[Rfam]
RNA sequence: AAAGUCCCAUCUACUCUCAGUGAGCCAUCUGAUGGGUAGUAGUGAACUUCACAUGCAUUCCAGUGAUGGUGUGUAUGAAGCUGGAGGAAUCAAGGAUUCAGGCCGCGCUAUUGAGCCUCGAAAAUUAACGUAUUGUGGUCUAUUAAGAUAAUCUAUUGGUGCUUUAUCAAUAGAAAAAGCCGACACUAUAGCAGGAGUGGAAGGCUAAAGUCUGGAAGUUGUUUUUAGGCUAGAUUUUCAGACACCACCGUGGUCGGAGAACG
Numbered sequence: 001a002a003a004g005u006c007c008c009a010u011c012u013a014c015u016c017u018c019a020g021u022g023a024g025c026c027a028u029c030u031g032a033u034g035g036g037u038a039g040u041a042g043u044g045a046a047c048u049u050c051a052c053a054u055g056c057a058u059u060c061c062a063g064u065g066a067u068g069g070u071g072u073g074u075a076u077g078a079a080g081c082u083g084g085a086g087g088a089a090u091c092a093a094g095g096a097u098u099c100a101g102g103c104c105g106c107g108c109u110a111u112u113g114a115g116c117c118u119c120g121a122a123a124a125u126u127a128a129c130g131u132a133u134u135g136u137g138g139u140c141u142a143u144u145a146a147g148a149u150a151a152u153c154u155a156u157u158g159g160u161g162c163u164u165u166a167u168c169a170a171u172a173g174a175a176a177a178a179g180c181c182g183a184c185a186c187u188a189u190a191g192c193a194g195g196a197g198u199g200g201a202a203g204g205c206u207a208a209a210g211u212c213u214g215g216a217a218g219u220u221g222u223u224u225u226u227a228g229g230c231u232a233g234a235u236u237u238u239c240a241g242a243c244a245c246c247a248c249c250g251u252g253g254u255c256g257g258a259g260a261a262c263g
Stems, first nucleotide, its partner, number of pairs: 012038005018031003021027001023231003040092001042090002047086003052077007060069003112257001113255001115254003119250002135248005179205003184199004210243011
Dot-bracket structure: ...........(((((.((((.[[[.).)))..))))).(.((...(((..(((((((.(((....))).)))))))......)))..)).)...................((.(((.((..............(((((.......................................(((..((((........))))...)))....(((((((((((........]]].)))))))))))))))))).)))).)......